The family of this 65-nucleotide sequence is "DUF805 RNA".

RNA sequence: AUAAAGUGGAGACUAGAACCCACUUAAAAAAAAAGGGCGUAUUCCGAAAAGCCUAAUGAGUAGGA
Dot-bracket structure: .....((((..........))))............(((....[[......)))..........]]
Its Rfam clan is "DUF805 clan". Rfam 15.1 lists 281 matches to the family in 219 species.